Shown here is a 95-nucleotide RNA sequence, a member of the family "Small nucleolar RNA Z103".
The family's consensus secondary structure was predicted with PFOLD.
[Rfam]
RNA sequence: GAGGAUAUGAUGAUCCUUUCCCCAGAUGAUCGACAAUGAACAUACCGUGCGAUUGUUUUCUCUUAGGAGAUAAUCAAGCCAGAAAUCUGAUCCUC
Numbered sequence: 001g002a003g004g005a006u007a008u009g010a011u012g013a014u015c016c017u018u019u020c021c022c023c024a025g026a027u028g029a030u031c032g033a034c035a036a037u038g039a040a041c042a043u044a045c046c047g048u049g050c051g052a053u054u055g056u057u058u059u060c061u062c063u064u065a066g067g068a069g070a071u072a073a074u075c076a077a078g079c080c081a082g083a084a085a086u087c088u089g090a091u092c093c094u095c
Stems, first nucleotide, its partner, number of pairs: 001095005

Rfam's curators put it in the seed alignment. For this family Rfam cites "The high diversity of snoRNAs in plants: identification and comparative study of 120 snoRNA genes from Oryza sativa" (Chen et al., Nucleic Acids Res, 2003).